[Rfam]
RNA sequence: AAUUUCCUGAGAUGUACGAGAAUCUUGCUAUUUUGAACCUACAAUAAUUUAUAUGGGAAUCCGAUAUUUACAGGGCUAUGUCAAGCCGCCGUUCGCAGCGGAAGACAGAAUCUUGUGUGAGGACACCCACCUAGCGCGGGCUAGGAGUCAAAAUACAGGAAACGGCAUUUUGGGUAUUAC
Numbered sequence: 001a002a003u004u005u006c007c008u009g010a011g012a013u014g015u016a017c018g019a020g021a022a023u024c025u026u027g028c029u030a031u032u033u034u035g036a037a038c039c040u041a042c043a044a045u046a047a048u049u050u051a052u053a054u055g056g057g058a059a060u061c062c063g064a065u066a067u068u069u070a071c072a073g074g075g076c077u078a079u080g081u082c083a084a085g086c087c088g089c090c091g092u093u094c095g096c097a098g099c100g101g102a103a104g105a106c107a108g109a110a111u112c113u114u115g116u117g118u119g120a121g122g123a124c125a126c127c128c129a130c131c132u133a134g135c136g137c138g139g140g141c142u143a144g145g146a147g148u149c150a151a152a153a154u155a156c157a158g159g160a161a162a163c164g165g166c167a168u169u170u171u172g173g174g175u176a177u178u179a180c
Stems, first nucleotide, its partner, number of pairs: 002178001004176001006174010017164002029155004034150003038145002055128003060123003066118001069117007081105002086101004
The record is a 180-nucleotide RNA sequence from Anaeromicropila herbilytica, which matches "6S / SsrS RNA" in Rfam. The base pairs follow the family's consensus structure, which is taken from published work. Taxonomically the source falls in Anaeromicropila (Bacteria, Bacillati, Clostridia, Lachnospiraceae). The family's RNA type in Rfam is non-coding RNA gene.